[Rfam]
The family of this 59-nucleotide RNA from Lactobacillus xujianguonis is "Transposase-1 RNA". Taxonomically the source falls in Lactobacillus (Bacteria, Bacillota, Lactobacillales, Lactobacillaceae). The base pairs follow the family's consensus structure, which is taken from published work.
RNA sequence: CUGGAAGAGUUGGUCAAUGCGAUUACUCCUAAAUUGGAAUAUCGGAAUACUAAUGAUGA
Dot-bracket structure: ........((((((.....((((...(((......)))..))))....)))))).....